[Rfam]
RNA sequence: UGCCCCGCGCCGGGCGUAAUAAGGGCGCACCGCAGGUGAAGCAACCACCGUAAAAAAGCAUA
Number, nucleotide and partner (000 for none) at each position: 001u016002g015003c014004c013005c000006c000007g000008c027009g026010c025011c024012g000013g004014g003015c002016g001017u000018a000019a000020u000021a000022a000023g000024g011025g010026c009027g008028c000029a000030c000031c000032g000033c000034a000035g049036g048037u047038g046039a000040a000041g000042c000043a000044a000045c000046c038047a037048c036049c035050g000051u000052a000053a000054a000055a000056a000057a000058g000059c000060a000061u000062a000
Rfam assigns this 62-nucleotide RNA sequence to the family "GP20-b RNA". Rfam's curators put it in the seed alignment.